RNA: Bacterial RNase P class A
Organism: Crocosphaera watsonii
RNA sequence: AGAGUUGGCGCGAGAGUUGCGCAUGGGUCAUUUUAACCCAUUCGAGGAAAGUCCGGACUCCCGAAAGAUCAGACUUGCUGGAUAAUUCCCAGUGCGCGUGAGCGUGAGGAUAGUGCCACAGAAAAAUACCGCCUAUGGCAACGUAGGUAAGGGUGCAAAGGUGUCGGUAAGAGCGCACCAGCAGUAUCGUGAGGUACUGGCUCGGUAAACCCCGGUUGGGAGCAAGGUCGGAGGGGCAAAAGGUUGGUCUUUUUCCUGUCCCGUUUUAGGUGUACCGCAUGAGGCGUUUGGUAACAUACGUCCCAGAUAGAUAACUCUCCAUUGAACAGAAUCCGGCUUAUGUCCAACUCUUUUC
Number, nucleotide and partner (000 for none) at each position: 001a351002g350003a349004g348005u347006u346007g345008g344009c000010g000011c000012g319013a318014g317015a316016g315017u314018u313019g000020c044021g043022c000023a041024u040025g039026g038027g037028u036029c000030a000031u000032u000033u000034u000035a000036a028037c027038c026039c025040a024041u023042u000043c021044g020045a000046g000047g000048a000049a339050a338051g337052u000053c336054c335055g334056g333057a332058c222059u221060c220061c219062c000063g000064a000065a000066a000067g255068a254069u000070c000071a000072g217073a216074c215075u000076u214077g213078c092079u091080g090081g089082a000083u000084a000085a000086u000087u000088c000089c081090c080091a079092g078093u107094g105095c104096g103097c102098g000099u000100g000101a000102g097103c096104g095105u094106g000107a093108g212109g211110a000111u000112a000113g210114u209115g206116c205117c204118a000119c000120a000121g000122a000123a000124a000125a000126a000127u000128a000129c152130c151131g148132c147133c146134u145135a144136u143137g142138g000139c000140a000141a000142c137143g136144u135145a134146g133147g132148u131149a000150a000151g130152g129153g000154u000155g000156c000157a000158a000159a000160g179161g178162u177163g176164u000165c175166g174167g000168u000169a000170a000171g000172a000173g000174c166175g165176c163177a162178c161179c160180a000181g201182c199183a198184g197185u196186a195187u194188c193189g000190u000191g000192a000193g188194g187195u186196a185197c184198u183199g182200g000201c181202u000203c000204g117205g116206u115207a000208a000209a114210c113211c109212c108213c077214g076215g074216u073217u072218g000219g061220g060221a059222g058223c000224a000225a000226g276227g275228u274229c000230g000231g000232a000233g000234g000235g000236g267237c000238a265239a264240a000241a000242g000243g000244u000245u000246g261247g260248u000249c258250u000251u000252u000253u000254u068255c067256c000257u000258g249259u000260c247261c246262c000263g000264u239265u238266u000267u236268a000269g000270g000271u000272g000273u000274a228275c227276c226277g000278c000279a000280u000281g000282a000283g302284g301285c300286g299287u298288u000289u296290g295291g000292u000293a000294a000295c290296a289297u000298a287299c286300g285301u284302c283303c000304c000305a000306g000307a000308u000309a000310g000311a000312u000313a018314a017315c016316u015317c014318u013319c012320c000321a000322u000323u000324g000325a000326a000327c000328a000329g000330a000331a000332u057333c056334c055335g054336g053337c051338u050339u049340a000341u000342g000343u000344c008345c007346a006347a005348c004349u003350c002351u001352u000353u000354u000355c000